[Rfam]
RNA sequence: GUCAGCACCCCACUCUGAAGAACGGGGGCUUCAUGCCUCUAGCUUCAGGUCGCUGACCCGCCUAGAUCCUUUGAGGACUAAGUUAUUGGCAAGGGUCAAAGACCUACCUUGAAGUGCUUGCCAGCUUCAAGCUCUAGAACCGAAUCGUUCAACGGUCCGACGAGGGGUAAGACCGUGCGACUUGGAAAGUACCGACCAAUAACAUGGGCGAGGCAAACAUCAC
Number, nucleotide and partner (000 for none) at each position: 001g057002u056003c055004a054005g053006c052007a050008c028009c027010c025011c024012a000013c000014u021015c020016u000017g000018a000019a000020g015021a014022a000023c000024g011025g010026g000027g009028g008029c000030u000031u000032c000033a000034u000035g000036c000037c000038u000039c000040u000041a000042g000043c000044u000045u000046c000047a000048g000049g000050u007051c000052g006053c005054u004055g003056a002057c001058c000059c000060g209061c208062c207063u206064a205065g079066a000067u077068c076069c075070u000071u000072u000073g000074a000075g069076g068077a067078c000079u065080a000081a000082g203083u202084u201085a200086u199087u198088g000089g000090c000091a000092a000093g000094g197095g196096u195097c194098a000099a000100a000101g000102a000103c000104c137105u136106a000107c000108c131109u130110u129111g128112a127113a126114g125115u124116g000117c000118u217119u216120g214121c213122c212123a000124g115125c114126u113127u112128c111129a110130a109131g108132c000133u000134c000135u000136a105137g104138a000139a000140c185141c184142g183143a182144a000145u180146c179147g178148u177149u000150c000151a000152a176153c175154g000155g173156u172157c171158c000159g000160a168161c167162g000163a000164g000165g000166g000167g161168u160169a000170a000171g157172a156173c155174c000175g153176u152177g148178c147179g146180a145181c000182u143183u142184g141185g140186a000187a000188a000189g000190u000191a000192c000193c000194g097195a096196c095197c094198a087199a086200u085201a084202a083203c082204a000205u064206g063207g062208g061209c060210g000211a000212g122213g121214c120215a000216a119217a118218c000219a000220u000221c000222a000223c000